[Rfam]
Shown here is a 69-nucleotide RNA sequence from Flavobacterium columnare, a member of the family "DUF805 RNA". NCBI's taxonomy places the organism under Bacteria, Pseudomonadati, Flavobacteriales, Flavobacteriaceae, Flavobacterium columnare. Its Rfam clan is "DUF805 clan". It scores 76 bits against the family's covariance model. By type it is a cis-regulatory element. Rfam 15.1 lists 281 matches to the family in 219 species.

RNA sequence: UAAAAGUGGAGUUCAGAAACCACUUAAAUAAACGAGGAGUAACUGAAAAUCCUAAAGAGUAGGGAAUUA
Numbered sequence: 001u002a003a004a005a006g007u008g009g010a011g012u013u014c015a016g017a018a019a020c021c022a023c024u025u026a027a028a029u030a031a032a033c034g035a036g037g038a039g040u041a042a043c044u045g046a047a048a049a050u051c052c053u054a055a056a057g058a059g060u061a062g063g064g065a066a067u068u069a
Stems, first nucleotide, its partner, number of pairs: 006023004036052003043063002